[Rfam]
Rfam assigns this 132-nucleotide RNA from Jaculus jaculus to the family "Small nucleolar RNA SNORA71". A reference for the family is Ganot et al. (1997), "The family of box ACA small nucleolar RNAs is defined by an evolutionarily conserved secondary structure and ubiquitous sequence elements essential for RNA accumulation", Genes Dev. The members of this family belong to the H/ACA class of snoRNAs which bind a number of proteins (including dyskerin, Gar1p and Nop10p) to form snoRNP complexes. This class of snoRNAs are thought to guide the sites of modification of uridines to pseudouridines by forming direct base pairing interactions with substrate RNAs. This family includes U71 (SNORA71), ACA39 (SNORA39) and ACA60 (SNORA60). U71 and ACA60 are predicted to guide the pseudouridylation of U406 and U1004 in 18S rRNA respectively. There is currently no target RNA identified for ACA39. The organism belongs to Jaculus, within Eukaryota.
RNA sequence: CCUUGCAUUCAAAAGUGGUUGGGGGCUACCCAUGCCCUGGUCAUUGAUACUGCUGGGAGAGGAUGUGGAAAACUUUUUCCUGUGUUUGGAAGGUCCACUCCUGUCCUUGUCAGACCCUGGUGCUUUUCUACA
Numbered sequence: 001c002c003u004u005g006c007a008u009u010c011a012a013a014a015g016u017g018g019u020u021g022g023g024g025g026c027u028a029c030c031c032a033u034g035c036c037c038u039g040g041u042c043a044u045u046g047a048u049a050c051u052g053c054u055g056g057g058a059g060a061g062g063a064u065g066u067g068g069a070a071a072a073c074u075u076u077u078u079c080c081u082g083u084g085u086u087u088g089g090a091a092g093g094u095c096c097a098c099u100c101c102u103g104u105c106c107u108u109g110u111c112a113g114a115c116c117c118u119g120g121u122g123c124u125u126u127u128c129u130a131c132a
Base pairs, nucleotide, nucleotide: 001057002056003055005053006052007051009049014045015044016043017042018041019040020039021038023037024036025035026034065129067128068127069126070125071124073122084115085114086113087112088111090108091107092106093105